[Rfam]
RNA sequence: CGACCUCAAAUCGGACGAGAUUACCCGCUGAACUUAAGCAUAUCACUAAGCGGAGGAAAAGAAACUAACCAGGAUUCCCUCAGUAACGGCGAGUGAAGCGGGAAGAGCCCAGCACCGAAUCCCUCGGCCUGUCGCCGACGGGAACUGUGGUGUGUGGGACGCCAACUGUCCGCGGUGCCGGCAGCCGAAGUCCCCCUGAUCGGGGCCUCUCCCAGAGUGGGUGUCAGGCCUUUGCCGGCUUGCUCGGUCCGCGGGCUGCGAGCGUCUCAGGAGUCGGUUGUUUGGAAUGCAGCCCAAAGUGGGUGGUAAACUCCAUCUAAGGCUAAAUACUGGCACGAGUCCGAUAGCGGACAAGUACCGUGAGGGAAAGUUGAAAAGAACUUUGAAGAGAGAGUUCAACAGUACGUGAAACCGCCUAGAGGUAAA
Numbered sequence: 001c002g003a004c005c006u007c008a009a010a011u012c013g014g015a016c017g018a019g020a021u022u023a024c025c026c027g028c029u030g031a032a033c034u035u036a037a038g039c040a041u042a043u044c045a046c047u048a049a050g051c052g053g054a055g056g057a058a059a060a061g062a063a064a065c066u067a068a069c070c071a072g073g074a075u076u077c078c079c080u081c082a083g084u085a086a087c088g089g090c091g092a093g094u095g096a097a098g099c100g101g102g103a104a105g106a107g108c109c110c111a112g113c114a115c116c117g118a119a120u121c122c123c124u125c126g127g128c129c130u131g132u133c134g135c136c137g138a139c140g141g142g143a144a145c146u147g148u149g150g151u152g153u154g155u156g157g158g159a160c161g162c163c164a165a166c167u168g169u170c171c172g173c174g175g176u177g178c179c180g181g182c183a184g185c186c187g188a189a190g191u192c193c194c195c196c197u198g199a200u201c202g203g204g205g206c207c208u209c210u211c212c213c214a215g216a217g218u219g220g221g222u223g224u225c226a227g228g229c230c231u232u233u234g235c236c237g238g239c240u241u242g243c244u245c246g247g248u249c250c251g252c253g254g255g256c257u258g259c260g261a262g263c264g265u266c267u268c269a270g271g272a273g274u275c276g277g278u279u280g281u282u283u284g285g286a287a288u289g290c291a292g293c294c295c296a297a298a299g300u301g302g303g304u305g306g307u308a309a310a311c312u313c314c315a316u317c318u319a320a321g322g323c324u325a326a327a328u329a330c331u332g333g334c335a336c337g338a339g340u341c342c343g344a345u346a347g348c349g350g351a352c353a354a355g356u357a358c359c360g361u362g363a364g365g366g367a368a369a370g371u372u373g374a375a376a377a378g379a380a381c382u383u384u385g386a387a388g389a390g391a392g393a394g395u396u397c398a399a400c401a402g403u404a405c406g407u408g409a410a411a412c413c414g415c416c417u418a419g420a421g422g423u424a425a426a
Stems, first nucleotide, its partner, number of pairs: 024055001025053005035042002065072002076103004086094002106324004113152005119146001120143004127136001157267006167258001172252004178246001180243001183240004190206001192205004213217001220230002276294006301318005358365002381392004
Shown here is a 426-nucleotide part of an RNA from Pomacea canaliculata, a member of the family "Eukaryotic large subunit ribosomal RNA". NCBI's taxonomy places the organism under Eukaryota, Spiralia, Gastropoda, Ampullarioidea, Pomacea. The base pairs follow the family's consensus structure, which is taken from published work. The match comes from Rfam's covariance-model search (3027 bits).